[Rfam]
RNA sequence: GCGUUCUGAAGUCCUGGUGUAGCUACAGAGAAACCAGUUCUCUUCAGAAUGC
Numbered sequence: 001g002c003g004u005u006c007u008g009a010a011g012u013c014c015u016g017g018u019g020u021a022g023c024u025a026c027a028g029a030g031a032a033a034c035c036a037g038u039u040c041u042c043u044u045c046a047g048a049a050u051g052c
Base pairs, nucleotide, nucleotide: 001052002051003050004049005048006047007046008045009044014037015036016035017034018033019026020025
RNA: MAT2A 3'UTR stem loop C